Rfam assigns this 170-nucleotide sequence from Vibrio tapetis to the family "FMN riboswitch aptamer (RFN element)".
[Rfam]
RNA sequence: AAUUAUUCUCAGGGCGGGGCGAAAUUCCCCACCGGCGGUAAGUCAUUAAACGAACGAUGAUUACAUUAUUCGUUAUCUUGAUAAGCCCGCGAGCGCUCGGUACGCCGAGGACAGCAGAUCUGGUGAGAUUCCAGGGCCGACGGUUAAAGUCCGGAUGGGAGAGGAUGAUA
Numbered sequence: 001a002a003u004u005a006u007u008c009u010c011a012g013g014g015c016g017g018g019g020c021g022a023a024a025u026u027c028c029c030c031a032c033c034g035g036c037g038g039u040a041a042g043u044c045a046u047u048a049a050a051c052g053a054a055c056g057a058u059g060a061u062u063a064c065a066u067u068a069u070u071c072g073u074u075a076u077c078u079u080g081a082u083a084a085g086c087c088c089g090c091g092a093g094c095g096c097u098c099g100g101u102a103c104g105c106c107g108a109g110g111a112c113a114g115c116a117g118a119u120c121u122g123g124u125g126a127g128a129u130u131c132c133a134g135g136g137c138c139g140a141c142g143g144u145u146a147a148a149g150u151c152c153g154g155a156u157g158g159g160a161g162a163g164g165a166u167g168a169u170a
Base pairs, nucleotide, nucleotide: 003168004167005166006165007164008163009162010161017029018028019027031150032149033139034138035090036089037088038087093115094114119135120134121133122132123131141153142152143151
Dot-bracket structure: ..((((((((......(((.......))).[[((((((................................................))))..((...................))...(((((.......)))))..)).(((.....]]))).......))))))))..

Taxonomically the source falls in Vibrio tapetis (Bacteria, Pseudomonadota, Vibrionales, Vibrio).